[Rfam]
RNA: MIR949 microRNA precursor family
Organism: Pinus taeda
RNA sequence: AGCCUCUCCGGGAAUCCAAUGCGCCUUCCUCUUGAACGCCUUUCAACGCGCGUGCUGUGCGUGAAAACGCGUUUAGGAGGAAGGUGUAUUGAUUUCCGGGGAAGCC
Numbered sequence: 001a002g003c004c005u006c007u008c009c010g011g012g013a014a015u016c017c018a019a020u021g022c023g024c025c026u027u028c029c030u031c032u033u034g035a036a037c038g039c040c041u042u043u044c045a046a047c048g049c050g051c052g053u054g055c056u057g058u059g060c061g062u063g064a065a066a067a068c069g070c071g072u073u074u075a076g077g078a079g080g081a082a083g084g085u086g087u088a089u090u091g092a093u094u095u096c097c098g099g100g101g102a103a104g105c106c
Stems, first nucleotide, its partner, number of pairs: 005102012018090019038070002041066005047061005